[Rfam]
RNA sequence: CCUUAGACUGCUAUAGCAGCGCAUCAUGGUUUGUAACGAUGUAGAAAAGGGUGCAAGCCAUAAUCUGCUGCUUUAGAAUUUUAAGG
Numbered sequence: 001c002c003u004u005a006g007a008c009u010g011c012u013a014u015a016g017c018a019g020c021g022c023a024u025c026a027u028g029g030u031u032u033g034u035a036a037c038g039a040u041g042u043a044g045a046a047a048a049g050g051g052u053g054c055a056a057g058c059c060a061u062a063a064u065c066u067g068c069u070g071c072u073u074u075a076g077a078a079u080u081u082u083a084a085g086g
Stems, first nucleotide, its partner, number of pairs: 001086006013074001015072007023064002026061010